About this RNA: A member of the RNA family "MIR6152 microRNA precursor family" from Nicotiana attenuata, 97 nucleotides long. The family has 2 seed sequences and 5,807 matches in Rfam 15.1. A search with the family's covariance model found it, with a score of 64 bits. The family's consensus secondary structure was predicted with RNAalifold. Lineage of the source: Eukaryota > Tracheophyta > eudicotyledons > Nicotianoideae > Nicotiana.
[Rfam]
RNA sequence: UGGACAGAUUAUCGUAUUCGACUGUAUCACGGCGUGAAACGGGGGAUUACACUAUUUUAAACGGAAAGAAAGUGAAUCAAUUAACAUAAUCGCUCCU
Number, nucleotide and partner (000 for none) at each position: 001u000002g096003g095004a094005c000006a000007g000008a000009u092010u000011a090012u089013c000014g087015u086016a000017u084018u083019c000020g082021a081022c000023u079024g078025u000026a077027u075028c074029a073030c072031g000032g000033c063034g062035u061036g058037a057038a056039a055040c000041g053042g052043g000044g000045g000046a000047u000048u000049a000050c000051a000052c042053u041054a000055u039056u038057u037058u036059a000060a000061a035062c034063g033064g000065a000066a000067a000068g000069a000070a000071a000072g030073u029074g028075a027076a000077u026078c024079a023080a000081u021082u020083a018084a017085c000086a015087u014088a000089a012090u011091c000092g009093c000094u004095c003096c002097u000